[Rfam]
RNA sequence: UGCAGAUCGCUGCAGGGUCCUUCUAUAUCCUAUGUAAAGGACAGAAGGCAAAGGGAGAGGAGAAACCGGAGGAAGAACUUAUGGGGAAACGUAAGUCUUCUCCGCGG
Number, nucleotide and partner (000 for none) at each position: 001u014002g013003c012004a011005g010006a000007u000008c000009g000010c005011u004012g003013c002014a001015g000016g000017g000018u055019c054020c053021u052022u051023c000024u000025a000026u043027a000028u041029c040030c039031u038032a000033u000034g000035u000036a000037a000038a031039g030040g029041a028042c000043a026044g000045a000046a000047g000048g000049c000050a000051a022052a021053g020054g019055g018056a000057g000058a000059g000060g000061a000062g000063a000064a000065a000066c000067c104068g103069g102070a101071g000072g100073a099074a098075g097076a000077a096078c095079u094080u093081a092082u000083g000084g000085g000086g000087a000088a000089a000090c000091g000092u081093a080094a079095g078096u077097c075098u074099u073100c072101u070102c069103c068104g067105c000106g000107g000